[Rfam]
RNA: permuted transfer-messenger RNA
Organism: Sulfitobacter brevis
RNA sequence: GGACAUAAACGCGCUCGUAAUAAGCGGUUCGGACCCGGGGGCGGUACCCGGCGGCUCCACCAAAACCCGUUCAUUUGACGGUUCUGGGGUCGAAAUAGGAUCGACGAACGUCUAAAGGUGUAGCUUUGUUUCGGCUGACUGCCACCGUUAUCGGCGUAAAAUGUACAAUUGCAAAUGACAAUCGUGCUCCAAUGGCGAUGGCCGCGUAA
Numbered sequence: 001g002g003a004c005a006u007a008a009a010c011g012c013g014c015u016c017g018u019a020a021u022a023a024g025c026g027g028u029u030c031g032g033a034c035c036c037g038g039g040g041g042c043g044g045u046a047c048c049c050g051g052c053g054g055c056u057c058c059a060c061c062a063a064a065a066c067c068c069g070u071u072c073a074u075u076u077g078a079c080g081g082u083u084c085u086g087g088g089g090u091c092g093a094a095a096u097a098g099g100a101u102c103g104a105c106g107a108a109c110g111u112c113u114a115a116a117g118g119u120g121u122a123g124c125u126u127u128g129u130u131u132c133g134g135c136u137g138a139c140u141g142c143c144a145c146c147g148u149u150a151u152c153g154g155c156g157u158a159a160a161a162u163g164u165a166c167a168a169u170u171g172c173a174a175a176u177g178a179c180a181a182u183c184g185u186g187c188u189c190c191a192a193u194g195g196c197g198a199u200g201g202c203c204g205c206g207u208a209a
Stems, first nucleotide, its partner, number of pairs: 001131005013121002016118001025110002029107003035051005052092007132147003